[Rfam]
RNA: Small nucleolar RNA SNORA81
Organism: Erinaceus europaeus
RNA sequence: ACCUUAUUUAAACUCUGUGCUAAAAUCGCAGAAACUAGUACUAUGUCUUAGUAUUUUUAAUAAAGCAAGCAGAGAACCCAAGAGGACGGGAGGACAGUCCAGGUAGUUGAAAACCUGAGAUGAAUCUCUUCCAGGGUGUUUGCUUCUAAGACUCGGUACAAUCCUG
Numbered sequence: 001a002c003c004u005u006a007u008u009u010a011a012a013c014u015c016u017g018u019g020c021u022a023a024a025a026u027c028g029c030a031g032a033a034a035c036u037a038g039u040a041c042u043a044u045g046u047c048u049u050a051g052u053a054u055u056u057u058u059a060a061u062a063a064a065g066c067a068a069g070c071a072g073a074g075a076a077c078c079c080a081a082g083a084g085g086a087c088g089g090g091a092g093g094a095c096a097g098u099c100c101a102g103g104u105a106g107u108u109g110a111a112a113a114c115c116u117g118a119g120a121u122g123a124a125u126c127u128c129u130u131c132c133a134g135g136g137u138g139u140u141u142g143c144u145u146c147u148a149a150g151a152c153u154c155g156g157u158a159c160a161a162u163c164c165u166g
Base pairs, nucleotide, nucleotide: 015074016073018071019070020069021068026063028061031055032054034052035051036050037049038048040046041045097159098158100156102154103153117137121133122132124130